[Rfam]
RNA: Phenylalanine leader peptide
Organism: Chionoecetes opilio
RNA sequence: AAUUUUUGGGGGAAAAUUUUUUCCCCCCUUUUUUUUUAAAGGGAAAAAAAAGGGGGGAAAAAAGGGGAAACCCCCCCAAAAAAAAAAUUUUAAAGGGGGGGUUUUUUUUU
Numbered sequence: 001a002a003u004u005u006u007u008g009g010g011g012g013a014a015a016a017u018u019u020u021u022u023c024c025c026c027c028c029u030u031u032u033u034u035u036u037u038a039a040a041g042g043g044a045a046a047a048a049a050a051a052g053g054g055g056g057g058a059a060a061a062a063a064g065g066g067g068a069a070a071c072c073c074c075c076c077c078a079a080a081a082a083a084a085a086a087a088u089u090u091u092a093a094a095g096g097g098g099g100g101g102u103u104u105u106u107u108u109u110u
Stems, first nucleotide, its partner, number of pairs: 017063003021059014036044002068104010